Rfam assigns this 65-nucleotide sequence from Neogobius melanostomus to the family "Selenocysteine insertion sequence 1". It is annotated as a cis-regulatory element. It scores 35 bits against the family's covariance model. About the family: The incorporation of selenocysteine into a protein sequence is directed by an in-frame UGA codon (usually a stop codon) within the coding region of the mRNA. Selenoprotein mRNAs contain a conserved secondary structure in the 3' UTR that is required for the distinction of UGA stop from UGA selenocysteine. NCBI's taxonomy places the organism under Eukaryota, Opisthokonta, Eumetazoa, Percomorphaceae, Neogobius. The base pairs follow the family's consensus structure, which is taken from published work.

Nucleotides: 065
Stems, first nucleotide, its partner, number of pairs: 001065005014050002017047007029037003
Number, partner (000 for none) and nucleotide at each position: 001065g002064g003063c004062g005061g006000u007000u008000a009000a010000u011000g012000a013000u014050g015049g016000c017047u018046g019045a020044g021043u022042u023041u024000u025000a026000a027000a028000g029037c030036a031035g032000u033000u034000u035031c036030u037029g038000a039000a040000g041023a042022a043021g044020c045019u046018c047017a048000a049015c050014c051000g052000g053000a054000a055000c056000a057000c058000a059000c060000u061005c062004c063003g064002c065001c